[Rfam]
RNA sequence: UCCGACAGGAUGUCGGUUAAGCUAUAGGGAAGCGAGUUUUUGUAAAAAACUCGUCGUCCAACAAGGAACAGGGACGUGCCUUGUUGGACAGCG
Numbered sequence: 001u002c003c004g005a006c007a008g009g010a011u012g013u014c015g016g017u018u019a020a021g022c023u024a025u026a027g028g029g030a031a032g033c034g035a036g037u038u039u040u041u042g043u044a045a046a047a048a049a050c051u052c053g054u055c056g057u058c059c060a061a062c063a064a065g066g067a068a069c070a071g072g073g074a075c076g077u078g079c080c081u082u083g084u085u086g087g088a089c090a091g092c093g
Stems, first nucleotide, its partner, number of pairs: 002016005033053009056089011068077002